[Rfam]
RNA: R2 RNA element
RNA sequence: AGUUGAUCUGAGAGAGUAGGUGCGAAAGCACAGCCCCUCCCCGAAGUAAUGCUGUGAGGCGGUUCUGGGGAGAAGAGAGCAUGAAGACUAAGGAAGGGGGUUUUAGUUGGUAGGUCAUCGAAGAAUGGAAUCCAGCACUCCCUUGGUCCGGGAAGACCCGGUGUCUAUGAAGAUUUCCCCACCUUCAGUGAUC
Numbered sequence: 001a002g003u004u005g006a007u008c009u010g011a012g013a014g015a016g017u018a019g020g021u022g023c024g025a026a027a028g029c030a031c032a033g034c035c036c037c038u039c040c041c042c043g044a045a046g047u048a049a050u051g052c053u054g055u056g057a058g059g060c061g062g063u064u065c066u067g068g069g070g071a072g073a074a075g076a077g078a079g080c081a082u083g084a085a086g087a088c089u090a091a092g093g094a095a096g097g098g099g100g101u102u103u104u105a106g107u108u109g110g111u112a113g114g115u116c117a118u119c120g121a122a123g124a125a126u127g128g129a130a131u132c133c134a135g136c137a138c139u140c141c142c143u144u145g146g147u148c149c150g151g152g153a154a155g156a157c158c159c160g161g162u163g164u165c166u167a168u169g170a171a172g173a174u175u176u177c178c179c180c181a182c183c184u185u186c187a188g189u190g191a192u193c
Stems, first nucleotide, its partner, number of pairs: 037072006078192001080190003093186004098180003106136005115128004138163001140161002